RNA sequence: UUUGCAUUAAUGAGGACUACACAGAAAACCUUUUCAGGGUUUGUGUGGAUCUGAUCUUUAGCAAA
Numbered sequence: 001u002u003u004g005c006a007u008u009a010a011u012g013a014g015g016a017c018u019a020c021a022c023a024g025a026a027a028a029c030c031u032u033u034u035c036a037g038g039g040u041u042u043g044u045g046u047g048g049a050u051c052u053g054a055u056c057u058u059u060a061g062c063a064a065a
Stems, first nucleotide, its partner, number of pairs: 001065005015051002017048008030038003

A member of the RNA family "Selenocysteine insertion sequence 1" from Pipistrellus kuhlii, 65 nucleotides long. Rfam 15.1 lists 3,793 matches to the family in 721 species. Lineage of the source: Eukaryota > Opisthokonta > Laurasiatheria > Chiroptera > Pipistrellus.